The family of this 134-nucleotide RNA from Geosporobacter ferrireducens is "c-di-AMP riboswitch aptamer (ydaO/yuaA leader)".
Taxonomically the source falls in Geosporobacter (Bacteria, Bacillati, Bacillota, Clostridia).
Gene Ontology terms of the family: regulation of gene expression and cyclic-di-AMP binding.
It scores 102 bits against the family's covariance model.
Rfam describes the family as follows. This family represents a conserved RNA structure found upstream of the ydaO and yuaA genes in Bacillus subtilis and related genes in other bacteria. The ydaO/yuaA element is thought to act as a genetic 'off' switch for the ydaO and yuaA genes in its native state. It is believed that the element may be triggered during osmotic shock leading to activation of ydaO, a predicted amino acid transporter gene, and members of the yuaA-yubG operon which code for KtrA and KtrB K+ transporters.

[Rfam]
RNA sequence: AACAAUGAAACGCUGAAUUCCUAGAUUAAGGAAACGGGGGAACCAAUUAUGGGGUGAAUCUCACAGGUGAGUAGGGUUAGUCUUCUUUCGACCCGAAUCCGUCAGCUAACUUCGUAAGCGUGGAAAGAGGAAAA
Numbered sequence: 001a002a003c004a005a006u007g008a009a010a011c012g013c014u015g016a017a018u019u020c021c022u023a024g025a026u027u028a029a030g031g032a033a034a035c036g037g038g039g040g041a042a043c044c045a046a047u048u049a050u051g052g053g054g055u056g057a058a059u060c061u062c063a064c065a066g067g068u069g070a071g072u073a074g075g076g077u078u079a080g081u082c083u084u085c086u087u088u089c090g091a092c093c094c095g096a097a098u099c100c101g102u103c104a105g106c107u108a109a110c111u112u113c114g115u116a117a118g119c120g121u122g123g124a125a126a127g128a129g130g131a132a133a134a
Base pairs, nucleotide, nucleotide: 011120012119013118014117018033019032020031021030022029034115035114036113037112038111039110044051045050052100053099054098060071061070062069063068074094075093076092077091